[Rfam]
The record is a 208-nucleotide sequence from [Eubacterium] siraeum, which matches "Group II catalytic intron D1-D4-5" in Rfam. Rfam's curators write: Group II introns are found in rRNA, tRNA and mRNA of organelles in fungi, plants and protists, and also in mRNA in bacteria. Lineage of the source: Bacteria > Bacillota > Clostridia > Eubacteriales > [Eubacterium] siraeum. A reference for the family is Bonen and Vogel (2001), "The ins and outs of group II introns", Trends Genet. Rfam 15.1 lists 720 matches to the family in 418 species. Rfam's curators put it in the seed alignment.

RNA sequence: GAGAACUAACAAUCCGAGAGGUGGAAUGAUGGGGUAACGCCCUGAAACGCCCCCUUAAUACUCCGACUGGCAUUUCAACAGAAAUGUGACUUGUCAGAAGCUCGGUGAAGUCGGCUGAGAGUAGCCGUAUGGAUUGCUGGAUAAAUACCAGCCUCACGAAAGCUGUCCAGAGGUGGACGGUGCUACCUAUAGGCCGGAGGUCUACAAA
Numbered sequence: 001g002a003g004a005a006c007u008a009a010c011a012a013u014c015c016g017a018g019a020g021g022u023g024g025a026a027u028g029a030u031g032g033g034g035u036a037a038c039g040c041c042c043u044g045a046a047a048c049g050c051c052c053c054c055u056u057a058a059u060a061c062u063c064c065g066a067c068u069g070g071c072a073u074u075u076c077a078a079c080a081g082a083a084a085u086g087u088g089a090c091u092u093g094u095c096a097g098a099a100g101c102u103c104g105g106u107g108a109a110g111u112c113g114g115c116u117g118a119g120a121g122u123a124g125c126c127g128u129a130u131g132g133a134u135u136g137c138u139g140g141a142u143a144a145a146u147a148c149c150a151g152c153c154u155c156a157c158g159a160a161a162g163c164u165g166u167c168c169a170g171a172g173g174u175g176g177a178c179g180g181u182g183c184u185a186c187c188u189a190u191a192g193g194c195c196g197g198a199g200g201u202c203u204a205c206a207a208a
Stems, first nucleotide, its partner, number of pairs: 018052001020051004031043004053200004063105004067097006075089003079086002112196005121186005126158003133154001162181008